[Rfam]
RNA: Small nucleolar RNA SNORA70
RNA sequence: CCGCAGCCAAUCAAGCCGACCAUGCUGCCCUCCCCAUGGCGCUCGGUGUGCACUGCUCCUGGUAAUGCCUGCGGCUGCGGCUAGUGUAGCUGCCUUGAGGGGCCCUGGAGACGCCC
Dot-bracket structure: ..(((.............(((....(((..........)))...))).))).........(((........(((((...........))))).........)))............